[Rfam]
RNA sequence: GUGAACCAUCGUGAUGUGGUUGUUUCAAUCGAUAAUCGCUUGAUUGAAAAGGGGCAAUGUUUUCAUUGCCCUUAAUUUUAC
Numbered sequence: 001g002u003g004a005a006c007c008a009u010c011g012u013g014a015u016g017u018g019g020u021u022g023u024u025u026c027a028a029u030c031g032a033u034a035a036u037c038g039c040u041u042g043a044u045u046g047a048a049a050a051g052g053g054g055c056a057a058u059g060u061u062u063u064c065a066u067u068g069c070c071c072u073u074a075a076u077u078u079u080a081c
Stems, first nucleotide, its partner, number of pairs: 025047008050073010
RNA: ABC transporter regulator
Organism: Pantoea agglomerans